[Rfam]
RNA sequence: AAUCUGCAACUGCUGAAUCCUAUGAUUAUAGGUACGGAGGAACCAUGCUAAGGGGUUAAUCCAUUUAUGGUAGGGGGUCUCCUCCCCCGAACCCGUCAGCUAACUUCGGAAGCAAAUUAUAGAAAGGAG
Numbered sequence: 001a002a003u004c005u006g007c008a009a010c011u012g013c014u015g016a017a018u019c020c021u022a023u024g025a026u027u028a029u030a031g032g033u034a035c036g037g038a039g040g041a042a043c044c045a046u047g048c049u050a051a052g053g054g055g056u057u058a059a060u061c062c063a064u065u066u067a068u069g070g071u072a073g074g075g076g077g078u079c080u081c082c083u084c085c086c087c088c089g090a091a092c093c094c095g096u097c098a099g100c101u102a103a104c105u106u107c108g109g110a111a112g113c114a115a116a117u118u119a120u121a122g123a124a125a126g127g128a129g
Stems, first nucleotide, its partner, number of pairs: 011114004019032005035108005044052001053094003061070003073088004
RNA: c-di-AMP riboswitch aptamer (ydaO/yuaA leader)